Source information: Shown here is a 61-nucleotide RNA sequence from Desertihabitans brevis, a member of the family "msiK RNA".
RNA sequence: UGACGUCGCUCCAUUCACUACGGAUCGUCGGGCACGUACCUGCCCGUGAAAGGAAGGCCCC
Numbered sequence: 001u002g003a004c005g006u007c008g009c010u011c012c013a014u015u016c017a018c019u020a021c022g023g024a025u026c027g028u029c030g031g032g033c034a035c036g037u038a039c040c041u042g043c044c045c046g047u048g049a050a051a052g053g054a055a056g057g058c059c060c061c
Stems, first nucleotide, its partner, number of pairs: 011053002014050004029046006
The base pairs follow the family's consensus structure, which is taken from published work.